Description: The family of this 118-nucleotide RNA from Bacillus licheniformis is "RNA Staph. aureus E (RoxS)". The source organism's lineage runs through Bacteria, Bacilli, Bacillaceae, Bacillus and Bacillus licheniformis. From the family's description: It was shown to be regulated by the presence of nitric oxide (NO). In Bacillus subtilis it controls expression of genes with functions related to oxidative stress and oxidation-reduction reactions and it was renamed RoxS (for related to oxidative stress). Its family is annotated with regulation of translational initiation in the Gene Ontology.
RNA sequence: GUGAAAUUGAUCACAAACAAACAUUUACCCCUUUGUUUGACCGUGAAAAAUUUCUCCCAUCCCCUUUGUUGUCGUUAAGACAUAAUAGAAACCGCGCUUAUCCCGGCGCGGUUUCUUA
Numbered sequence: 001g002u003g004a005a006a007u008u009g010a011u012c013a014c015a016a017a018c019a020a021a022c023a024u025u026u027a028c029c030c031c032u033u034u035g036u037u038u039g040a041c042c043g044u045g046a047a048a049a050a051u052u053u054c055u056c057c058c059a060u061c062c063c064c065u066u067u068g069u070u071g072u073c074g075u076u077a078a079g080a081c082a083u084a085a086u087a088g089a090a091a092c093c094g095c096g097c098u099u100a101u102c103c104c105g106g107c108g109c110g111g112u113u114u115c116u117u118a
Base pairs, nucleotide, nucleotide: 003054004053005052006051007050008049011046012045013044014043018039019038020037021036022035023034070084071083072082088115089114090113091112092111093110094109095108096107097106098105